[Rfam]
RNA: Small nucleolar RNA ACA64
Organism: Upupa epops
RNA sequence: CCAGUCUGAAAAUCAUUCGGGCCCUCCUGUGGGCCCCGGUGAGAUAACUGUGCCGACAGCAUCGGGAACAUCAAAGCUCAUUGCCCACAGUCGAGUGCGGGCAAUAAAACCCGUGUUCCCACAGCC
Numbered sequence: 001c002c003a004g005u006c007u008g009a010a011a012a013u014c015a016u017u018c019g020g021g022c023c024c025u026c027c028u029g030u031g032g033g034c035c036c037c038g039g040u041g042a043g044a045u046a047a048c049u050g051u052g053c054c055g056a057c058a059g060c061a062u063c064g065g066g067a068a069c070a071u072c073a074a075a076g077c078u079c080a081u082u083g084c085c086c087a088c089a090g091u092c093g094a095g096u097g098c099g100g101g102c103a104a105u106a107a108a109a110c111c112c113g114u115g116u117u118c119c120c121a122c123a124g125c126c
Stems, first nucleotide, its partner, number of pairs: 006050001008048001010045001013042004021034004065119001067117005078107001080105003086097003
Dot-bracket structure: .....(.(.(..((((....((((......))))....))))..)..).)..............(.(((((......(.(((...(((......))).....))).).....))))).).......